[Rfam]
RNA sequence: UGCAGGUGAUGGUCUUUCUCACGAUGGUCUUCUGAGCCUGUGUGGCCCUGAGGACACCUGCCUCACGGCAAUACUGAUGCAGCCCG
Numbered sequence: 001u002g003c004a005g006g007u008g009a010u011g012g013u014c015u016u017u018c019u020c021a022c023g024a025u026g027g028u029c030u031u032c033u034g035a036g037c038c039u040g041u042g043u044g045g046c047c048c049u050g051a052g053g054a055c056a057c058c059u060g061c062c063u064c065a066c067g068g069c070a071a072u073a074c075u076g077a078u079g080c081a082g083c084c085c086g
Stems, first nucleotide, its partner, number of pairs: 001081004
About this RNA:
The family of this 86-nucleotide sequence from Atractosteus spatula is "Small nucleolar RNA SNORD35". It scores 53 bits against the family's covariance model. The family's RNA type in Rfam is C/D-box small nucleolar RNA. U35 is a C/D box snoRNA located in intron 6 of ribosomal protein L13A and intron 3 of ribosomal protein S11 in humans and at homologous positions in mouse and chicken ribosomal protein genes. U35 guides the methylation of 2'-O-ribose sites in 28S rRNA. Clan: SNORD35 clan.